[Rfam]
RNA sequence: AGGGGUGUGAGGAGCAAACUUGCAAAACCCCCAGAAGUCGAAACACGGACAGACGCUCUGGGGGUUUUGUUUU
Numbered sequence: 001a002g003g004g005g006u007g008u009g010a011g012g013a014g015c016a017a018a019c020u021u022g023c024a025a026a027a028c029c030c031c032c033a034g035a036a037g038u039c040g041a042a043a044c045a046c047g048g049a050c051a052g053a054c055g056c057u058c059u060g061g062g063g064g065u066u067u068u069g070u071u072u073u
Base pairs, nucleotide, nucleotide: 015069024068025067026066027065028064029063030062034058035057037054038053039052
This 73-nucleotide RNA sequence from Pseudanabaenaceae cyanobacterium LEGE 13415 belongs to the Rfam family "Cyano-1 RNA". By type it is a small RNA. The match comes from Rfam's covariance-model search (48 bits). Pairs were carried over by alignment from the consensus structure, which is taken from published work.